[Rfam]
RNA sequence: UUCUUAUCCAGAGCGGUGGAGGGACUGGCCUGAUGAAACCGCGGCAACCACCCUGAUUGAUUGAGGGAAAGGUGCCAAUUCCUGCGGGGCAUAUGCCUUGGAAGAUGAGAA
Numbered sequence: 001u002u003c004u005u006a007u008c009c010a011g012a013g014c015g016g017u018g019g020a021g022g023g024a025c026u027g028g029c030c031u032g033a034u035g036a037a038a039c040c041g042c043g044g045c046a047a048c049c050a051c052c053c054u055g056a057u058u059g060a061u062u063g064a065g066g067g068a069a070a071g072g073u074g075c076c077a078a079u080u081c082c083u084g085c086g087g088g089g090c091a092u093a094u095g096c097c098u099u100g101g102a103a104g105a106u107g108a109g110a111a
Base pairs, nucleotide, nucleotide: 001111002110003109004108005107006106007105008104013042014041015040016039017038021031022030023029025084027082028081043076044075045074046073048072049071051067052066053065080103085100086099087098088097089096090095
Overview
The record is a 111-nucleotide sequence from Melghirimyces algeriensis, which matches "SAM riboswitch aptamer (S box leader)" in Rfam. The family is grouped with related families in Rfam's "SAM clan". It scores 96 bits against the family's covariance model. The organism belongs to Melghirimyces, within Bacteria.